RNA: TPP riboswitch aptamer (THI element)
Organism: Sphingomonas sp. YR710
Nucleotides: 107
Base pairs, nucleotide, nucleotide: 006095007094008093009092011056012055013054014053017025018024019023032050033049034048035047062087063086064085068081069080070079071078
Number, partner (000 for none) and nucleotide at each position: 001000g002000c003000c004000c005000c006095a007094u008093c009092c010000c011056c012055g013054g014053g015000g016000a017025g018024c019023c020000g021000a022000u023019g024018g025017c026000u027000g028000a029000g030000a031000g032050g033049c034048g035047g036000u037000g038000c039000u040000g041000a042000a043000a044000u045000g046000c047035c048034c049033g050032c051000g052000a053014c054013c055012c056011g057000c058000u059000g060000a061000a062087c063086c064085u065000g066000a067000u068081c069080c070079g071078g072000a073000u074000c075000g076000u077000a078071c079070c080069g081068g082000c083000g084000g085064a086063g087062g088000g089000a090000g091000c092009g093008g094007g095006u096000a097000a098000a099000g100000c101000a102000g103000c104000c105000g106000g107000u